[Rfam]
RNA sequence: UGAGGCAGAAGCCCGUAGCACAAGCACCCAUGGUGCUGCCUGUCAGAUUCUGAUGAAUCUGCAAAUUCUGCU
Numbered sequence: 001u002g003a004g005g006c007a008g009a010a011g012c013c014c015g016u017a018g019c020a021c022a023a024g025c026a027c028c029c030a031u032g033g034u035g036c037u038g039c040c041u042g043u044c045a046g047a048u049u050c051u052g053a054u055g056a057a058u059c060u061g062c063a064a065a066u067u068c069u070g071c072u
Base pairs, nucleotide, nucleotide: 011040013038017072018071019070020069022067023066024036025035026034044061045060046059047058048057049056050055

Description
This 72-nucleotide sequence from Crocodylus porosus belongs to the Rfam family "Mammalian CPEB3 ribozyme". It scores 42 bits against the family's covariance model. Its family is annotated with RNA nuclease activity in the Gene Ontology. Lineage of the source: Eukaryota > Chordata > Dipnotetrapodomorpha > Archosauria > Crocodylus.